[Rfam]
Nucleotides: 114
Stems, first nucleotide, its partner, number of pairs: 002113007013041001015040003021031003025084001027082002042076004047072002050067005080106001085103006
Number, partner (000 for none) and nucleotide at each position: 001000c002113u003112c004111u005110u006109a007108u008107c009000a010000a011000g012000a013041g014000c015040g016039g017038c018000g019000g020000a021031g022030g023029g024000a025084c026000u027082g028081g029023c030022c031021c032000u033000a034000u035000g036000a037000a038017g039016c040015c041013c042076g043075a044074c045073a046000a047072c048071c049000g050067g051066c052065a053064u054063u055000u056000u057000c058000a059000u060000u061000u062000a063054a064053a065052u066051g067050u068000a069000u070000c071048g072047g073045u074044g075043u076042c077000a078000a079000u080106u081028c082027c083000u084025g085103c086102a087101g088100g089099a090098u091000a092000u093000c094000g095000c096000u097000u098090a099089u100088u101087c102086u103085g104000a105000a106080a107008g108007a109006u110005a111004a112003g113002g114000a

This 114-nucleotide sequence from Clostridium thailandense belongs to the Rfam family "SAM riboswitch aptamer (S box leader)". The source organism's lineage runs through Bacteria, Bacillati, Bacillota, Eubacteriales and Clostridium.